Rfam assigns this 136-nucleotide sequence from Ornithorhynchus anatinus to the family "Small nucleolar RNA SNORA29". The literature on the family includes a 2001 paper in EMBO J by Huttenhofer et al., "RNomics: an experimental approach that identifies 201 candidates for novel, small, non-messenger RNAs in mouse". By type it is an H/ACA-box small nucleolar RNA. It scores 102 bits against the family's covariance model. The family's consensus secondary structure was predicted with PFOLD. Rfam 15.1 lists 960 matches to the family in 621 species. Rfam's curators write: ACA29 is a member of the H/ACA class of snoRNA that guide the sites of modification of uridines to pseudouridines.

RNA sequence: CUUCCCAUUUGACUACCUCUCUGUCGGUCCCACAGACGAAGAGGUUAUGCUUAUGGGAUAGAGAAAACGUUGCCACGGUCUGAAGGGGAAGGUUUCCCGUACCUUUUUUCUACAUGAAGUGGCACAACAGACAUCA
Number, nucleotide and partner (000 for none) at each position: 001c000002u000003u000004c057005c056006c055007a054008u000009u000010u000011g000012a000013c000014u000015a000016c044017c043018u042019c041020u000021c000022u000023g000024u000025c000026g000027g000028u000029c000030c000031c000032a000033c000034a000035g000036a000037c000038g000039a000040a000041g019042a018043g017044g016045u000046u000047a000048u000049g000050c000051u000052u000053a000054u007055g006056g005057g004058a000059u000060a000061g000062a000063g000064a000065a000066a000067a000068c000069g000070u000071u000072g123073c122074c121075a120076c000077g000078g000079u000080c000081u000082g000083a000084a000085g000086g000087g000088g000089a000090a111091g110092g109093u000094u000095u000096c000097c000098c000099g000100u000101a000102c000103c000104u000105u000106u000107u000108u000109u092110c091111u090112a000113c000114a000115u000116g000117a000118a000119g000120u075121g074122g073123c072124a000125c000126a000127a000128c000129a000130g000131a000132c000133a000134u000135c000136a000